RNA sequence: UUCUUAUCCAGAGAAGCUGAGGGACUGGCCCGAUGACGCUUCGGCAGCAGACUUUCCACAAAGUACUGUGCCAAUUCCAGCAGGCAACGCGCCUGGGAGAUGAGAA
Numbered sequence: 001u002u003c004u005u006a007u008c009c010a011g012a013g014a015a016g017c018u019g020a021g022g023g024a025c026u027g028g029c030c031c032g033a034u035g036a037c038g039c040u041u042c043g044g045c046a047g048c049a050g051a052c053u054u055u056c057c058a059c060a061a062a063g064u065a066c067u068g069u070g071c072c073a074a075u076u077c078c079a080g081c082a083g084g085c086a087a088c089g090c091g092c093c094u095g096g097g098a099g100a101u102g103a104g105a106a
Stems, first nucleotide, its partner, number of pairs: 001106008013042005021031003025080004043072004048068002051064004076098001081095005
The record is a 106-nucleotide sequence from Rossellomorea marisflavi, which matches "SAM riboswitch aptamer (S box leader)" in Rfam. Its family is annotated with regulation of gene expression in the Gene Ontology. NCBI's taxonomy places the organism under Bacteria, Bacillati, Bacilli, Bacillaceae, Rossellomorea.